[Rfam]
RNA sequence: GUCUAGUCCCAGUGCACUGGUGUUUACAAUUAAUUGAUUACAACCAGUUAAAUAUUUCUUUGUUCUUUCUCCAUUCCGCUGCUUCACUUGAUUAGAUUAAA
Numbered sequence: 001g002u003c004u005a006g007u008c009c010c011a012g013u014g015c016a017c018u019g020g021u022g023u024u025u026a027c028a029a030u031u032a033a034u035u036g037a038u039u040a041c042a043a044c045c046a047g048u049u050a051a052a053u054a055u056u057u058c059u060u061u062g063u064u065c066u067u068u069c070u071c072c073a074u075u076c077c078g079c080u081g082c083u084u085c086a087c088u089u090g091a092u093u094a095g096a097u098u099a100a101a
Base pairs, nucleotide, nucleotide: 001097002096003095004094005093006092007091008090011088014085016080018078019077020076028064029063030062032060033059